The family of this 77-nucleotide RNA sequence from Caproiciproducens sp. NJN-50 is "ZMP/ZTP riboswitch aptamer (pfl RNA motif)".
RNA sequence: UAAGAGUCAUAUGACUGACGGAUGUGGAGUACCACAGGGGAGUAUGACAGAAAAGGCCGGCCGUCUGGGCGAACAGU
Number, nucleotide and partner (000 for none) at each position: 001u000002a000003a000004g000005a000006g048007u047008c046009a045010u044011a043012u042013g000014a000015c039016u038017g065018a064019c063020g062021g061022a000023u000024g035025u034026g033027g032028a000029g000030u000031a000032c027033c026034a025035c024036a000037g000038g016039g015040g000041a000042g012043u011044a010045u009046g008047a007048c006049a000050g000051a000052a000053a000054a000055g000056g070057c069058c068059g000060g000061c021062c020063g019064u018065c017066u000067g000068g058069g057070c056071g000072a000073a000074c000075a000076g000077u000
Pairs were carried over by alignment from the consensus structure, which is taken from published work. The match comes from Rfam's covariance-model search (56 bits).